[Rfam]
The record is a 149-nucleotide RNA from Yoonia sediminilitoris, which matches "FMN riboswitch aptamer (RFN element)" in Rfam. NCBI's taxonomy places the organism under Bacteria, Pseudomonadati, Alphaproteobacteria, Paracoccaceae, Yoonia. Pairs were carried over by alignment from the consensus structure, which is taken from published work. It scores 103 bits against the family's covariance model.
RNA sequence: UCAGGUUCUCAGGGCGGGGCGGAAUUCCCCACCGGCGGUAUGCCCUUCGGGGUGAGCCCGCGAGCGCCUUUGGCCGUUGGCCAAAGGGUCAAGCAGAUCAGGUGAGAGGCCUGAGCCGACGGUCAUAGUCCGGAUGAAAGAGAGCGGGU
Number, nucleotide and partner (000 for none) at each position: 001u000002c000003a000004g000005g145006u144007u143008c142009u141010c140011a000012g000013g000014g000015c000016g000017g029018g028019g027020c000021g000022g000023a000024a000025u000026u000027c019028c018029c017030c000031a129032c128033c118034g117035g061036c060037g059038g058039u000040a000041u000042g000043c000044c000045c000046u000047u000048c000049g000050g000051g000052g000053u000054g000055a000056g116057c115058c038059c037060g036061c035062g000063a000064g094065c093066g000067c000068c000069u000070u000071u000072g000073g000074c000075c000076g000077u000078u000079g000080g000081c000082c000083a000084a000085a000086g000087g000088g000089u000090c000091a000092a000093g065094c064095a000096g000097a000098u114099c113100a112101g111102g110103u000104g000105a000106g000107a000108g000109g000110c102111c101112u100113g099114a098115g057116c056117c034118g033119a000120c132121g131122g130123u000124c000125a000126u000127a000128g032129u031130c122131c121132g120133g000134a000135u000136g000137a000138a000139a000140g010141a009142g008143a007144g006145c005146g000147g000148g000149u000